U4 spliceosomal RNA: a 157-nucleotide sequence from Clavispora lusitaniae.
Its Rfam clan is "U4 clan".
The base pairs follow the family's consensus structure, which is taken from published work.
NCBI's taxonomy places the organism under Eukaryota, saccharomyceta, Saccharomycotina, Metschnikowiaceae, Clavispora lusitaniae.
[Rfam]
RNA sequence: AUCUUUAUGCAGGGGCAUUACGUGUAUCAGUGAGGAUUCGUCCGAGAUCAUGUUUUUGCUGGUUGAAAACUAUAACCUGACAACUCCUUGGUAGACCUUGCCUUGUGCUUGGGCUGCCCGGGGAAUUUUUGGAUUUGCCUGAUUUUGCUUUGUGGCA
Number, nucleotide and partner (000 for none) at each position: 001a000002u000003c000004u000005u000006u000007a000008u000009g000010c000011a000012g000013g000014g000015g000016c000017a000018u000019u000020a053021c052022g051023u050024g049025u000026a048027u047028c046029a000030g000031u000032g000033a000034g043035g042036a041037u000038u000039c000040g000041u036042c035043c034044g000045a000046g028047a027048u026049c024050a023051u022052g021053u020054u000055u000056u000057u000058g000059c000060u000061g000062g000063u000064u000065g000066a000067a000068a000069a000070c000071u000072a000073u000074a000075a000076c000077c000078u000079g000080a000081c000082a000083a000084c000085u123086c122087c121088u000089u000090g118091g117092u116093a115094g114095a000096c112097c111098u000099u000100g000101c000102c000103u000104u000105g000106u000107g000108c000109u000110u000111g097112g096113g000114c094115u093116g092117c091118c090119c000120g000121g087122g086123g085124a000125a000126u000127u000128u000129u000130u000131g000132g000133a000134u000135u000136u157137g156138c155139c154140u000141g000142a000143u000144u000145u000146u000147g000148c000149u000150u000151u000152g000153u000154g139155g138156c137157a136
Rfam's curators put it in the seed alignment.
Its family is annotated with spliceosomal tri-snRNP complex assembly and U4 snRNP in the Gene Ontology.
Rfam's curators write: U4 small nuclear RNA (U4 snRNA) is a component of the major U2-dependent spliceosome.